[Rfam]
RNA sequence: CAAAUCGCGACGGGAGAGCUCGCCGCCGGCCCUGGCCGACGACGACGCCGAAGGAGCAAACCCUCCCCGGGAAUCUCUCAGGCCCCCGUACCGUCGUGACGAG
Number, nucleotide and partner (000 for none) at each position: 001c000002a000003a000004a000005u000006c098007g097008c096009g095010a094011c093012g092013g091014g000015a000016g000017a000018g000019c000020u045021c044022g043023c000024c000025g000026c000027c000028g000029g000030c000031c000032c000033u000034g000035g000036c000037c000038g000039a000040c000041g000042a000043c022044g021045a020046c000047g083048c082049c081050g079051a078052a000053g000054g077055a076056g075057c000058a000059a000060a000061c069062c000063c000064u000065c000066c000067c000068c000069g061070g000071g000072a000073a000074u000075c056076u055077c054078u051079c050080a000081g049082g048083c047084c000085c000086c000087c000088g000089u000090a000091c013092c012093g011094u010095c009096g008097u007098g006099a000100c000101g000102a000103g000